[Rfam]
RNA sequence: CCCCCGCUUCUCCUCCCUGAGCGGGUGCCUGUCGUUUUACGAUUAGGCUGUUAGCCCGCCGUGUCUCACGGCGGGUUUUUUUAU
Numbered sequence: 001c002c003c004c005c006g007c008u009u010c011u012c013c014u015c016c017c018u019g020a021g022c023g024g025g026u027g028c029c030u031g032u033c034g035u036u037u038u039a040c041g042a043u044u045a046g047g048c049u050g051u052u053a054g055c056c057c058g059c060c061g062u063g064u065c066u067c068a069c070g071g072c073g074g075g076u077u078u079u080u081u082u083a084u
Base pairs, nucleotide, nucleotide: 003025004024005023006022007021008020027048028047029046030045032042033041034040054076055075056074057073058072059071060070061069